RNA: Small nucleolar RNA SNORD11B
Organism: Anabas testudineus
RNA sequence: GCCAAGCAGUGAUGAUGAAGACUUUUAGUCACUUCGCUGAAAAUAGAUGAUGGCUUUUAAGUCACUACCUCAUCUGAGCUUGCA
Numbered sequence: 001g002c003c004a005a006g007c008a009g010u011g012a013u014g015a016u017g018a019a020g021a022c023u024u025u026u027a028g029u030c031a032c033u034u035c036g037c038u039g040a041a042a043a044u045a046g047a048u049g050a051u052g053g054c055u056u057u058u059a060a061g062u063c064a065c066u067a068c069c070u071c072a073u074c075u076g077a078g079c080u081u082g083c084a
Stems, first nucleotide, its partner, number of pairs: 003082005
Dot-bracket structure: ..(((((......................................................................)))))..